CRISPR RNA direct repeat element: a 37-nucleotide sequence from Sulfuriferula plumbiphila. It scores 51 bits against the family's covariance model. The organism belongs to Sulfuriferula, within Bacteria.
RNA sequence: GCAUCGCCCGGCCUCGCGGCCGGGCGCGGAUUGAAAC
Numbered sequence: 001g002c003a004u005c006g007c008c009c010g011g012c013c014u015c016g017c018g019g020c021c022g023g024g025c026g027c028g029g030a031u032u033g034a035a036a037c
Stems, first nucleotide, its partner, number of pairs: 005026009